[Rfam]
RNA sequence: AAUUCUGUUUGUAAGAAGAAAGAGAAGCAGAUCUAUUUUAUACUCGAUAAGUGCCACUGCGUUGGGU
Numbered sequence: 001a002a003u004u005c006u007g008u009u010u011g012u013a014a015g016a017a018g019a020a021a022g023a024g025a026a027g028c029a030g031a032u033c034u035a036u037u038u039u040a041u042a043c044u045c046g047a048u049a050a051g052u053g054c055c056a057c058u059g060c061g062u063u064g065g066g067u
Base pairs, nucleotide, nucleotide: 003022004021006019008017009016010015043066044065045064051060052059053058
Record summary: Shown here is a 67-nucleotide RNA sequence from Panicum virgatum, a member of the family "Plastid-clpP 5UTR RNA". Pairs were carried over by alignment from the consensus structure, which was predicted with LocARNA. The literature on the family includes a 2023 paper in Plant Commun by Richter et al., "Retrograde signaling in plants: A critical review focusing on the GUN pathway and beyond". Rfam 15.1 lists 2,105 matches to the family in 526 species.